[Rfam]
RNA sequence: AUAAAUGGUAGAGGUGCAAUGAUCAAGAGUCCAUAAUCAUAAUGUUUGGUACAGUGAUUAUGAAAAGGGUGAUUUGCCGAAGUGUUUUCAUGAUACCAAUAGUGAAAAUGCUGGGGGAUGAUAGAAUAUAUCAUCAACUGUCACAAUAUGUGGAGGGCUAUCUCAUGC
Dot-bracket structure: ......(((((....((((....(.......((((((((...............))))))))......)....))))...(((((((((((..........)))))))))))((..(((((((.....)))))))..)).(((((...)))))....)))))......
This 168-nucleotide RNA sequence from Coprobacillus cateniformis belongs to the Rfam family "Lysine riboswitch aptamer".
It scores 100 bits against the family's covariance model.
NCBI's taxonomy places the organism under Bacteria, Bacillati, Bacillota, Erysipelotrichia, Coprobacillus.
Rfam describes the family as follows. Riboswitches are metabolite binding domains within certain messenger RNAs that serve as precision sensors for their corresponding targets.